[Rfam]
RNA sequence: GAAUAAGCGCAUACGGUGGAUGCCUUGGCGAUAACAGGCGAUGAAGGACGUGGUAGUCUGCGAUAAGCCCCGGGGAGCUGACAAACAAGCUUUGAUCCGAGGAUUUCCGAAUGGGGAAACCCACCCGCAAGGGUAUCGGUACCUGAAUACAUAGGGUAUCCGAAGCGAACCUGGUGAACUGAAACAUCUAAGUAGCCAGAGGAAAAGAAAUCAACCGAGAUUCCGUUAGUAGUGGCGAGCGAACGCGGAGCAGCCCAGUCACAUCAAAUCGGCGUCUUUUAGUGGAACGGUCUGGAAAGUCCGGCGAUACAGGGUGAUAGCCCCGUACACGAAAAGAGGCGUCGGUGGGUGACGAAGAGUAGGGCGGGACACGUGGAAUCCUGUCUGAAUAUGGGGGGACCAUCCUCCAAGGCUAAAUACUCGUUAUCGACCGAUAGUGAACCAGUACCGUGAGGGAAAGGCGAAAAGAACCCCGGAGAGGGGAGUGAAAUAGAUCCUGAAACCGUAUGUGUACAAG
Numbered sequence: 001g002a003a004u005a006a007g008c009g010c011a012u013a014c015g016g017u018g019g020a021u022g023c024c025u026u027g028g029c030g031a032u033a034a035c036a037g038g039c040g041a042u043g044a045a046g047g048a049c050g051u052g053g054u055a056g057u058c059u060g061c062g063a064u065a066a067g068c069c070c071c072g073g074g075g076a077g078c079u080g081a082c083a084a085a086c087a088a089g090c091u092u093u094g095a096u097c098c099g100a101g102g103a104u105u106u107c108c109g110a111a112u113g114g115g116g117a118a119a120c121c122c123a124c125c126c127g128c129a130a131g132g133g134u135a136u137c138g139g140u141a142c143c144u145g146a147a148u149a150c151a152u153a154g155g156g157u158a159u160c161c162g163a164a165g166c167g168a169a170c171c172u173g174g175u176g177a178a179c180u181g182a183a184a185c186a187u188c189u190a191a192g193u194a195g196c197c198a199g200a201g202g203a204a205a206a207g208a209a210a211u212c213a214a215c216c217g218a219g220a221u222u223c224c225g226u227u228a229g230u231a232g233u234g235g236c237g238a239g240c241g242a243a244c245g246c247g248g249a250g251c252a253g254c255c256c257a258g259u260c261a262c263a264u265c266a267a268a269u270c271g272g273c274g275u276c277u278u279u280u281a282g283u284g285g286a287a288c289g290g291u292c293u294g295g296a297a298a299g300u301c302c303g304g305c306g307a308u309a310c311a312g313g314g315u316g317a318u319a320g321c322c323c324c325g326u327a328c329a330c331g332a333a334a335a336g337a338g339g340c341g342u343c344g345g346u347g348g349g350u351g352a353c354g355a356a357g358a359g360u361a362g363g364g365c366g367g368g369a370c371a372c373g374u375g376g377a378a379u380c381c382u383g384u385c386u387g388a389a390u391a392u393g394g395g396g397g398g399a400c401c402a403u404c405c406u407c408c409a410a411g412g413c414u415a416a417a418u419a420c421u422c423g424u425u426a427u428c429g430a431c432c433g434a435u436a437g438u439g440a441a442c443c444a445g446u447a448c449c450g451u452g453a454g455g456g457a458a459a460g461g462c463g464a465a466a467a468g469a470a471c472c473c474c475g476g477a478g479a480g481g482g483g484a485g486u487g488a489a490a491u492a493g494a495u496c497c498u499g500a501a502a503c504c505g506u507a508u509g510u511g512u513a514c515a516a517g
Stems, first nucleotide, its partner, number of pairs: 007512010022497001023461002027432002029429007036421002038166002046108003049062003068102002071099004077090003113122003123134004136163002138160007170201001171199005181188002211218002221417001222249005232240002252414004258353005268346013282330003288303003292299001306310001312324003362386008393408005448455002471483004
This 517-nucleotide part of an RNA from Acidiferrobacter sp. SPIII_3 belongs to the Rfam family "Bacterial large subunit ribosomal RNA". The family's consensus secondary structure is taken from published work. Lineage of the source: Bacteria > Pseudomonadati > Gammaproteobacteria > Acidiferrobacterales > Acidiferrobacter.